The record is a 55-nucleotide sequence from Musa balbisiana, which matches "Plastid-rps18 3UTR RNA" in Rfam. By type it is a cis-regulatory element.
RNA sequence: UGCAGGUAUUUUACGAUUAAGAAGCAUGCUUCUUGUACAGAUUGUGUAUUAAUCU
Numbered sequence: 001u002g003c004a005g006g007u008a009u010u011u012u013a014c015g016a017u018u019a020a021g022a023a024g025c026a027u028g029c030u031u032c033u034u035g036u037a038c039a040g041a042u043u044g045u046g047u048a049u050u051a052a053u054c055u
Stems, first nucleotide, its partner, number of pairs: 018035007
Background: A search with the family's covariance model found it, with a score of 74 bits. Rfam describes the family as follows. Plastid rps18 is a non-coding RNA (ncRNA) present in plastids. It was identified as a short stem-loop motif in the 3 prime untranslate region (3UTR) of rps18 gene. The family's consensus secondary structure was predicted with LocARNA.